[Rfam]
RNA: Small Cajal body specific RNA 24
Organism: Scyliorhinus torazame
RNA sequence: UGGGCGCUAGUUUUUGCUCCAGUAUCCUCCAGUUUUGAGAUAUUUGGUUACGCUGGUGCCCUAGAUAAAAGAGAAGGUUUCUGUUCAGUCUUCUGAAGUUUGAGGGUUGAAUCGUUCCACUUCUUACAAUA
Number, nucleotide and partner (000 for none) at each position: 001u000002g061003g060004g059005c058006g057007c056008u055009a054010g053011u052012u000013u000014u000015u000016g000017c000018u000019c000020c046021a045022g044023u042024a041025u040026c039027c000028u000029c000030c000031a000032g000033u000034u000035u000036u000037g000038a000039g026040a025041u024042a023043u000044u022045u021046g020047g000048u000049u000050a000051c000052g011053c010054u009055g008056g007057u006058g005059c004060c003061c002062u000063a000064g000065a000066u000067a000068a000069a000070a000071g125072a124073g123074a122075a121076g120077g000078u000079u000080u000081c000082u000083g000084u000085u000086c000087a000088g000089u000090c105091u104092u103093c102094u000095g000096a000097a000098g000099u000100u000101u000102g093103a092104g091105g090106g000107u000108u000109g000110a000111a000112u000113c000114g000115u000116u000117c000118c000119a000120c076121u075122u074123c073124u072125u071126a000127c000128a000129a000130u000131a000